[Rfam]
Nucleotides: 084
Stems, first nucleotide, its partner, number of pairs: 002083006010075002013072002017068001020065002023062001025061007
Number, partner (000 for none) and nucleotide at each position: 001000c002083c003082a004081u005080u006079u007078u008000a009000a010075g011074g012000a013072c014071g015000g016000u017068a018000u019000u020065u021064g022000u023062g024000a025061c026060a027059a028058u029057a030056u031055g032000u033000g034000c035000a036000g037000u038000u039000a040000a041000a042000u043000c044000a045000a046000u047000u048000u049000g050000u051000u052000u053000a054000g055031c056030a057029u058028a059027u060026u061025g062023c063000a064021c065020a066000u067000c068017u069000c070000c071014c072013g073000g074011c075010c076000u077000a078007a079006a080005a081004a082003u083002g084000a

Notes
Shown here is an 84-nucleotide sequence from Drosophila virilis, a member of the family "mir-310 microRNA precursor family". Pairs were carried over by alignment from the consensus structure, which was predicted with RNAalifold. Rfam links the family to the GO terms head involution, RISC complex and miRNA-mediated post-transcriptional gene silencing. Rfam's curators put it in the seed alignment. Clan: mir-92 microRNA precursor clan.